[Rfam]
RNA sequence: CGGCGUAGCGCUAGACUCUGCCGCCUUUCGGCGCCUAUGAGCCUGGCGCCACCCGUUUUGUGAAUCGGAGAUAUUCGGAUGGCCCGUAUUGCAGGCGUUAACAUCCCGGAA
Numbered sequence: 001c002g003g004c005g006u007a008g009c010g011c012u013a014g015a016c017u018c019u020g021c022c023g024c025c026u027u028u029c030g031g032c033g034c035c036u037a038u039g040a041g042c043c044u045g046g047c048g049c050c051a052c053c054c055g056u057u058u059u060g061u062g063a064a065u066c067g068g069a070g071a072u073a074u075u076c077g078g079a080u081g082g083c084c085c086g087u088a089u090u091g092c093a094g095g096c097g098u099u100a101a102c103a104u105c106c107c108g109g110a111a
Stems, first nucleotide, its partner, number of pairs: 005052002008049006024095003029086003038109001
Annotation: A member of the RNA family "Alpha operon ribosome binding site" from Alcanivorax borkumensis, 111 nucleotides long. Taxonomically the source falls in Alcanivorax borkumensis (Bacteria, Pseudomonadati, Gammaproteobacteria, Alcanivoracaceae). The bacterial alpha operon ribosome binding site is surrounded by this complex pseudoknotted structure. Translation of the mRNA produces 4 ribosomal protein products, one of which (S4) acts as a translational repressor by binding to the nested pseudoknot region. The mechanism of repression is thought to involve a conformational switch in the pseudoknot region and ribosome entrapment.